[Rfam]
Rfam assigns this 512-nucleotide part of an RNA from an uncultured archaeon to the family "Archaeal small subunit ribosomal RNA". The base pairs follow the family's consensus structure, which is taken from published work. It is one of the family's seed sequences. On this family, see Yusupov et al., Science 2001: "Crystal structure of the ribosome at 5.5 A resolution". The family has 86 seed sequences and 709 matches in Rfam 15.1.
RNA sequence: ACACUGGUUGAUCCUGCCAGAGGCUACUGCCAUCAGAGUUCGAUUAAGCCAUGUUAGUCGAGGGUGCUUCUUCUUCGGAAGAAGUAACCCGGCGGACGGCUCAGUAACACGUGGAUAACUUGCCCUUGGGUCCGGGAUAACCCCUGAGAAAUUGGGGACAAUACCGGAUAGGGCAUCGAUAGCUGGAAUGCGCGAUGUCCAAAAGCUGAGGCGCCCAAGGAUAGGUCUGCGGCCGAUUAGGUUGUUGUUGAUGUAAUGGAUCAACAAGCCUGCAAUCGGUACGGGUUGUGAGAGCAAGAGCCCGGAGAUGGGUUCUGAGAAAAGAACCCAGGUCCUACGGGACGCAUCAGGCGCGAAAACUUUACAAUGUGCGAAAGCACGAUAAGGGAACUCUGAGUGCCUCCUAUGGAGGCUGUUCAGGUGUCUAAAAAGCACUUGAAGUAAGGGCUGGGUAAGACCGGUGCCAGCCGCCGCGGUAACACCGGCAGCCCAAGUGGUAGCCACGAUUAUUG
Numbered sequence: 001a002c003a004c005u006g007g008u009u010g011a012u013c014c015u016g017c018c019a020g021a022g023g024c025u026a027c028u029g030c031c032a033u034c035a036g037a038g039u040u041c042g043a044u045u046a047a048g049c050c051a052u053g054u055u056a057g058u059c060g061a062g063g064g065u066g067c068u069u070c071u072u073c074u075u076c077g078g079a080a081g082a083a084g085u086a087a088c089c090c091g092g093c094g095g096a097c098g099g100c101u102c103a104g105u106a107a108c109a110c111g112u113g114g115a116u117a118a119c120u121u122g123c124c125c126u127u128g129g130g131u132c133c134g135g136g137a138u139a140a141c142c143c144c145u146g147a148g149a150a151a152u153u154g155g156g157g158a159c160a161a162u163a164c165c166g167g168a169u170a171g172g173g174c175a176u177c178g179a180u181a182g183c184u185g186g187a188a189u190g191c192g193c194g195a196u197g198u199c200c201a202a203a204a205g206c207u208g209a210g211g212c213g214c215c216c217a218a219g220g221a222u223a224g225g226u227c228u229g230c231g232g233c234c235g236a237u238u239a240g241g242u243u244g245u246u247g248u249u250g251a252u253g254u255a256a257u258g259g260a261u262c263a264a265c266a267a268g269c270c271u272g273c274a275a276u277c278g279g280u281a282c283g284g285g286u287u288g289u290g291a292g293a294g295c296a297a298g299a300g301c302c303c304g305g306a307g308a309u310g311g312g313u314u315c316u317g318a319g320a321a322a323a324g325a326a327c328c329c330a331g332g333u334c335c336u337a338c339g340g341g342a343c344g345c346a347u348c349a350g351g352c353g354c355g356a357a358a359a360c361u362u363u364a365c366a367a368u369g370u371g372c373g374a375a376a377g378c379a380c381g382a383u384a385a386g387g388g389a390a391c392u393c394u395g396a397g398u399g400c401c402u403c404c405u406a407u408g409g410a411g412g413c414u415g416u417u418c419a420g421g422u423g424u425c426u427a428a429a430a431a432g433c434a435c436u437u438g439a440a441g442u443a444a445g446g447g448c449u450g451g452g453u454a455a456g457a458c459c460g461g462u463g464c465c466a467g468c469c470g471c472c473g474c475g476g477u478a479a480c481a482c483c484g485g486c487a488g489c490c491c492a493a494g495u496g497g498u499a500g501c502c503a504c505g506a507u508u509a510u511u512g
Stems, first nucleotide, its partner, number of pairs: 004020005022502009033396009042354001048352003052349002057093003062090003070081004100307003110231007119224002124220007132167004141157004146153002172199007182191002205212002233279003240270003245267008282304004286297004309330006332343004360386001362385003368381005399413006418438007445491006458485004467474002